Shown here is a 96-nucleotide RNA from Niallia nealsonii, a member of the family "Manganese Mn2+ riboswitch aptamer (yybP-ykoY)".
NCBI's taxonomy places the organism under Bacteria, Bacillati, Bacilli, Caryophanales, Niallia.
This RNA was originally discovered in E. coli during a large scale screen and was named SraF. The family was later found to exist upstream of related families of protein genes in many bacteria, including the the yybP and ykoK genes in B. subtilis. The specific functions of these proteins are unknown, but this structured RNA element may be involved in their genetic regulation as a riboswitch.
It scores 45 bits against the family's covariance model.
[Rfam]
RNA sequence: UAUGUCCUCAAAGGGGAGUAGCUUUUAGGGUAACCUAAAAUAAAGUCGUCAUUUCGUGGUUUUGUUACCAUCGGCUUUAUUGGCAUUUAAGUGCUU
Numbered sequence: 001u002a003u004g005u006c007c008u009c010a011a012a013g014g015g016g017a018g019u020a021g022c023u024u025u026u027a028g029g030g031u032a033a034c035c036u037a038a039a040a041u042a043a044a045g046u047c048g049u050c051a052u053u054u055c056g057u058g059g060u061u062u063u064g065u066u067a068c069c070a071u072c073g074g075c076u077u078u079a080u081u082g083g084c085a086u087u088u089a090a091g092u093g094c095u096u
Stems, first nucleotide, its partner, number of pairs: 026037003039081010056071005